Shown here is an 89-nucleotide RNA sequence from Usitatibacter rugosus, a member of the family "Burkholderia RNA 7 (anti-hemB)". Lineage of the source: Bacteria > Pseudomonadota > Betaproteobacteria > Usitatibacteraceae > Usitatibacter. A reference for the family is Weinberg et al. (2007), "Identification of 22 candidate structured RNAs in bacteria using the CMfinder comparative genomics pipeline", Nucleic Acids Res. This RNA motif was identified by computational search in b-proteobacteria Burkholderia. Co-purified with Hfq, expression confirmed by Northern blot. The family's RNA type in Rfam is small RNA.

RNA sequence: UCCCCGCUUCUCCUCCCUGAGCGGGCGCCUUAAUCCCAAUUAAGGCUUUUUGACCCCGCCUUUACUCCCCUUUAGGCGGGGUUUUGUUU
Numbered sequence: 001u002c003c004c005c006g007c008u009u010c011u012c013c014u015c016c017c018u019g020a021g022c023g024g025g026c027g028c029c030u031u032a033a034u035c036c037c038a039a040u041u042a043a044g045g046c047u048u049u050u051u052g053a054c055c056c057c058g059c060c061u062u063u064a065c066u067c068c069c070c071u072u073u074a075g076g077c078g079g080g081g082u083u084u085u086g087u088u089u
Stems, first nucleotide, its partner, number of pairs: 003025006027046007054081008